The record is a 68-nucleotide RNA from Mycobacterium leprae, which matches "ASdes TB sRNA" in Rfam. A reference for the family is Arnvig and Young (2009), "Identification of small RNAs in Mycobacterium tuberculosis", Mol Microbiol. By type it is a small RNA. Pairs were carried over by alignment from the consensus structure, which is taken from published work. Taxonomically the source falls in Mycobacterium (Bacteria, Bacillati, Actinomycetota, Mycobacteriaceae).
RNA sequence: AGCUCCACCGGAUCGACCGCGCGGGUCACCACCAGAUAGUCGCGCAGCGCGAUUCCGUGCCGGUUUUC
Numbered sequence: 001a002g003c004u005c006c007a008c009c010g011g012a013u014c015g016a017c018c019g020c021g022c023g024g025g026u027c028a029c030c031a032c033c034a035g036a037u038a039g040u041c042g043c044g045c046a047g048c049g050c051g052a053u054u055c056c057g058u059g060c061c062g063g064u065u066u067u068c
Stems, first nucleotide, its partner, number of pairs: 004063002008059001011030001013028001015027004035056001038053001040052005